The record is a 231-nucleotide sequence, which matches "IS605-orfB-I RNA" in Rfam. Rfam's curators put it in the seed alignment.
RNA sequence: GUCUUAUAUUAGAUGUAGCCACGCAAGACAGUGACGCAUCUCCCUGUAGGACGGGAACUUUGAGCAGAAGCAUGUGCGACAAGUCUUAUUGCGUGGCUUUUUAGUUGAAAUAAGGUGAGUACGUGUGGAAUAGGCUAAUCGUAGGGCCUUAGAUUGAAAAAUCUUAAAACUAAUCUAAGAAUUGUAAGGAUUAGAUUUUUUAUUUUUUUUACAAUUUUUAGUUGCGAUACC
Numbered sequence: 001g002u003c004u005u006a007u008a009u010u011a012g013a014u015g016u017a018g019c020c021a022c023g024c025a026a027g028a029c030a031g032u033g034a035c036g037c038a039u040c041u042c043c044c045u046g047u048a049g050g051a052c053g054g055g056a057a058c059u060u061u062g063a064g065c066a067g068a069a070g071c072a073u074g075u076g077c078g079a080c081a082a083g084u085c086u087u088a089u090u091g092c093g094u095g096g097c098u099u100u101u102u103a104g105u106u107g108a109a110a111u112a113a114g115g116u117g118a119g120u121a122c123g124u125g126u127g128g129a130a131u132a133g134g135c136u137a138a139u140c141g142u143a144g145g146g147c148c149u150u151a152g153a154u155u156g157a158a159a160a161a162u163c164u165u166a167a168a169a170c171u172a173a174u175c176u177a178a179g180a181a182u183u184g185u186a187a188g189g190a191u192u193a194g195a196u197u198u199u200u201u202a203u204u205u206u207u208u209u210u211a212c213a214a215u216u217u218u219u220a221g222u223u224g225c226g227a228u229a230c231c
Base pairs, nucleotide, nucleotide: 001052002051003050004049005048006047007046008045011041012040013039014038015037016036018035020033021032022031023029070126071125072124073123074122075121076120077119084115085114086113087112088111089110090109095106096105098103132149133148134147135146136145138228139227140226141225142224143223144170151164152163153162154161155160175221176220177219178218179217180216181215182214183213184212185211186210187209188208189207190206